RNA: Early nodulin 40
RNA sequence: AUGGAGCAGCUUUGUUGGGAAGAAUCUACCCGUGGCUCUUGAAAGAGAAGCAUACAUGGAGGAUCGUGUGUAGAUUCUUCACACUUCUACUCCACUUUCAACACAGUUUGCCUAUGUGGAAAUGCAUCAUUCUCUGUGAUGAGUAGCAGAGGGAAAUUAAAGCAUUCUCCAGCUCCAAAGUUUUAAUUUGGGUACAGCCUUGGCAAACCGGCAAGUCACAAGAAGGCACUAAUGGACACUCCUAUAUAUACAUAUGGAAGGGUCCU
Numbered sequence: 001a002u003g004g005a006g007c008a009g010c011u012u013u014g015u016u017g018g019g020a021a022g023a024a025u026c027u028a029c030c031c032g033u034g035g036c037u038c039u040u041g042a043a044a045g046a047g048a049a050g051c052a053u054a055c056a057u058g059g060a061g062g063a064u065c066g067u068g069u070g071u072a073g074a075u076u077c078u079u080c081a082c083a084c085u086u087c088u089a090c091u092c093c094a095c096u097u098u099c100a101a102c103a104c105a106g107u108u109u110g111c112c113u114a115u116g117u118g119g120a121a122a123u124g125c126a127u128c129a130u131u132c133u134c135u136g137u138g139a140u141g142a143g144u145a146g147c148a149g150a151g152g153g154a155a156a157u158u159a160a161a162g163c164a165u166u167c168u169c170c171a172g173c174u175c176c177a178a179a180g181u182u183u184u185a186a187u188u189u190g191g192g193u194a195c196a197g198c199c200u201u202g203g204c205a206a207a208c209c210g211g212c213a214a215g216u217c218a219c220a221a222g223a224a225g226g227c228a229c230u231a232a233u234g235g236a237c238a239c240u241c242c243u244a245u246a247u248a249u250a251c252a253u254a255u256g257g258a259a260g261g262g263u264c265c266u
Base pairs, nucleotide, nucleotide: 061093062092063091106208107207108206109205110204111203125197238263239262240261241260